[Rfam]
RNA sequence: UGCCUCGUUAUUCAGCAAAUAGACACUUCUUGCUCUGUGUCUGAAUUGGAAAACGGGGCUAGAAGAGGAACAGGUUGUGCUUUCCCCACUGUACAGCUAAUUGCAGUGGUGACAAUGAGACCUGUAACAGGC
Numbered sequence: 001u002g003c004c005u006c007g008u009u010a011u012u013c014a015g016c017a018a019a020u021a022g023a024c025a026c027u028u029c030u031u032g033c034u035c036u037g038u039g040u041c042u043g044a045a046u047u048g049g050a051a052a053a054c055g056g057g058g059c060u061a062g063a064a065g066a067g068g069a070a071c072a073g074g075u076u077g078u079g080c081u082u083u084c085c086c087c088a089c090u091g092u093a094c095a096g097c098u099a100a101u102u103g104c105a106g107u108g109g110u111g112a113c114a115a116u117g118a119g120a121c122c123u124g125u126a127a128c129a130g131g132c
Base pairs, nucleotide, nucleotide: 002059003058004057006055007054008053021042022041023040024039025038026037070125071124072123073122074121084111086109087108088107089106

Description
A member of the RNA family "Small nucleolar RNA SNORA1" from Rostratula benghalensis, 132 nucleotides long. Rfam describes the family as follows. ACA1 is a member of the H/ACA class of snoRNA that guide the sites of modification of uridines to pseudouridines. The family's consensus secondary structure was predicted with PFOLD. Rfam 15.1 lists 1,282 matches to the family in 515 species.